[Rfam]
RNA: TPP riboswitch aptamer (THI element)
RNA sequence: AUUUGCUACUAGGGGAGCCAAAAGGCUGAGAUGAAUGUAUUCAGACCCUUAUAACCUGAUUUGGUUAAUACCAACGUAGGAAAGUAGUUAUUAACUAUU
Numbered sequence: 001a002u003u004u005g006c007u008a009c010u011a012g013g014g015g016a017g018c019c020a021a022a023a024g025g026c027u028g029a030g031a032u033g034a035a036u037g038u039a040u041u042c043a044g045a046c047c048c049u050u051a052u053a054a055c056c057u058g059a060u061u062u063g064g065u066u067a068a069u070a071c072c073a074a075c076g077u078a079g080g081a082a083a084g085u086a087g088u089u090a091u092u093a094a095c096u097a098u099u
Base pairs, nucleotide, nucleotide: 006087007086008085009084010083011049012048013047014046017026018025019024033042034041035040055080056079057078058077061074062073063072064071